RNA sequence: GUGACUGACACGGGGUGCCGGCAGAAAGCCGGCUGAGAUCCAGACCCGUAGAACCUGUCCGGUUAGCACCGGCGAAGGGAUGUCUCCUUGGCUUCGA
Numbered sequence: 001g002u003g004a005c006u007g008a009c010a011c012g013g014g015g016u017g018c019c020g021g022c023a024g025a026a027a028g029c030c031g032g033c034u035g036a037g038a039u040c041c042a043g044a045c046c047c048g049u050a051g052a053a054c055c056u057g058u059c060c061g062g063u064u065a066g067c068a069c070c071g072g073c074g075a076a077g078g079g080a081u082g083u084c085u086c087c088u089u090g091g092c093u094u095c096g097a
Stems, first nucleotide, its partner, number of pairs: 007084004011048004016042001017033005054078003059072004
TPP riboswitch aptamer (THI element): a 97-nucleotide RNA sequence from Pseudarthrobacter sp. BIM B-2242. The family's consensus secondary structure is taken from published work. The literature on the family includes a 2002 paper in J Biol Chem by Rodionov et al., "Comparative genomics of thiamin biosynthesis in procaryotes. New genes and regulatory mechanisms". The match comes from Rfam's covariance-model search (64 bits). NCBI's taxonomy places the organism under Bacteria, Bacillati, Micrococcales, Micrococcaceae, Pseudarthrobacter.